[Rfam]
RNA sequence: AUUCAUCUUCAGGGGCAGGGCGAAAAUCCCUACCGGUGGUAAAGUCCACGAGCGAGUAAAAUUGCUGAACUGGUGUAAUUCCAGUACCGACAGUAUAGUCUGGAUAAAGAAGAUGGAG
Numbered sequence: 001a002u003u004c005a006u007c008u009u010c011a012g013g014g015g016c017a018g019g020g021c022g023a024a025a026a027u028c029c030c031u032a033c034c035g036g037u038g039g040u041a042a043a044g045u046c047c048a049c050g051a052g053c054g055a056g057u058a059a060a061a062u063u064g065c066u067g068a069a070c071u072g073g074u075g076u077a078a079u080u081c082c083a084g085u086a087c088c089g090a091c092a093g094u095a096u097a098g099u100c101u102g103g104a105u106a107a108a109g110a111a112g113a114u115g116g117a118g
Stems, first nucleotide, its partner, number of pairs: 003116008018030003032099002034089002036049004044087002052065003069085005091102003
This 118-nucleotide RNA sequence from Alkalibacterium kapii belongs to the Rfam family "FMN riboswitch aptamer (RFN element)". The base pairs follow the family's consensus structure, which is taken from published work. Rfam describes the family as follows. The RFN element is a highly conserved domain that is found frequently in the 5'-untranslated regions of prokaryotic mRNAs that encode for flavin mononucleotide (FMN) biosynthesis and transport proteins.